This 164-nucleotide sequence from Ectobacillus ponti belongs to the Rfam family "M-box riboswitch aptamer (ykoK leader)".
[Rfam]
RNA sequence: UGGAAUCUCUGUUAGGUGAGGCUCCUGUAUGGAUAUACGCUGCUGCCCAAAAAUGUCGAGAGACGCCAAUGGGUCAACAGGAACGAUCGGCAUGAAGGUCUUUCUUAACGCAGCUGGCAUUUGCCUAAGCCAUACAGUGCUAAAGCUCGACGAGGGAGAGGAAU
Numbered sequence: 001u002g003g004a005a006u007c008u009c010u011g012u013u014a015g016g017u018g019a020g021g022c023u024c025c026u027g028u029a030u031g032g033a034u035a036u037a038c039g040c041u042g043c044u045g046c047c048c049a050a051a052a053a054u055g056u057c058g059a060g061a062g063a064c065g066c067c068a069a070u071g072g073g074u075c076a077a078c079a080g081g082a083a084c085g086a087u088c089g090g091c092a093u094g095a096a097g098g099u100c101u102u103u104c105u106u107a108a109c110g111c112a113g114c115u116g117g118c119a120u121u122u123g124c125c126u127a128a129g130c131c132a133u134a135c136a137g138u139g140c141u142a143a144a145g146c147u148c149g150a151c152g153a154g155g156g157a158g159a160g161g162a163a164u
Stems, first nucleotide, its partner, number of pairs: 006159005011151002013096001015147003020141003025137008039114005045074005054065004080105004086099003116125003

It scores 147 bits against the family's covariance model. Rfam links the family to the GO terms regulation of gene expression and response to magnesium ion. Rfam's curators write: M-box riboswitch, also know as ykoK leader is described as a metaloregulatory RNA that sense divalent metals and function as a genetic control element of genes related to divalent metal transport in bacteria.